Description:
Rfam assigns this 72-nucleotide sequence from endosymbiont of Galathealinum brachiosum to the family "SAH (S-adenosyl-L-homocysteine) riboswitch aptamer". The match comes from Rfam's covariance-model search (56 bits).
RNA sequence: CGCACUGAGGAGCGCUGCAGCAGAUAUCUCUGUCAGGCUUGGUGCAUCAAUUUUAAACUGCGCUCAUUUAUU
Number, nucleotide and partner (000 for none) at each position: 001c000002g045003c044004a043005c042006u041007g040008a039009g000010g000011a000012g000013c000014g000015c000016u000017g000018c000019a000020g000021c032022a031023g030024a029025u000026a000027u000028c000029u024030c023031u022032g021033u000034c000035a000036g000037g000038c000039u008040u007041g006042g005043u004044g003045c002046a000047u000048c000049a000050a000051u000052u000053u000054u000055a000056a000057a000058c000059u000060g000061c000062g000063c000064u000065c000066a000067u000068u000069u000070a000071u000072u000
The family's consensus secondary structure is taken from published work.